Description
The family of this 80-nucleotide RNA sequence is "S10-Clostridia ribosomal protein leader". The family's consensus secondary structure is taken from published work. Rfam's curators put it in the seed alignment.
[Rfam]
RNA sequence: GAUAUGCGAUGAUGCAGAAGGUGGCCGCCCCUUGAGGCGGGGAAUUUCUGCGGAGUAUGUCCGAUUUACAAACCGGGCGA
Numbered sequence: 001g002a003u004a005u006g007c008g009a010u011g012a013u014g015c016a017g018a019a020g021g022u023g024g025c026c027g028c029c030c031c032u033u034g035a036g037g038c039g040g041g042g043a044a045u046u047u048c049u050g051c052g053g054a055g056u057a058u059g060u061c062c063g064a065u066u067u068a069c070a071a072a073c074c075g076g077g078c079g080a
Stems, first nucleotide, its partner, number of pairs: 014051003019047003025040005058079006